A member of the RNA family "U4atac minor spliceosomal RNA" from Clupea harengus, 131 nucleotides long. The family is grouped with related families in Rfam's "U4 clan". Rfam's curators write: U4atac is an essential component of the minor U12-type spliceosome complex which is required for removal of the rarer class of eukaryotic introns (AT-AC, U12-type).

RNA sequence: ACCUUCCUUGUCUUGGGGUGUCUUGGGCUAUUCAAUGAACGUAUAGUGAGAAUAUCCUGCUAACACCAUUAACCAACACAUUACGCAUCACCUGAGCGUUAAGCUUAGGCUAUGGUGCAAUUUUUGGAACC
Number, nucleotide and partner (000 for none) at each position: 001a000002c000003c000004u000005u000006c018007c017008u016009u015010g000011u000012c000013u000014u000015g009016g008017g007018g006019u000020g060021u059022c000023u000024u000025g000026g000027g056028c000029u054030a053031u052032u051033c050034a000035a000036u000037g000038a000039a047040c046041g000042u000043a000044u000045a000046g040047u039048g000049a000050g033051a032052a031053u030054a029055u000056c027057c000058u000059g021060c020061u000062a000063a000064c000065a000066c000067c000068a000069u000070u000071a000072a000073c000074c000075a000076a000077c000078a000079c000080a000081u000082u000083a000084c000085g118086c117087a116088u115089c114090a113091c109092c108093u000094g106095a105096g104097c103098g000099u000100u000101a000102a000103g097104c096105u095106u094107a000108g092109g091110c000111u000112a000113u090114g089115g088116u087117g086118c085119a000120a000121u000122u000123u000124u000125u000126g000127g000128a000129a000130c000131c000
Lineage of the source: Eukaryota > Vertebrata > Actinopteri > Clupeinae > Clupea.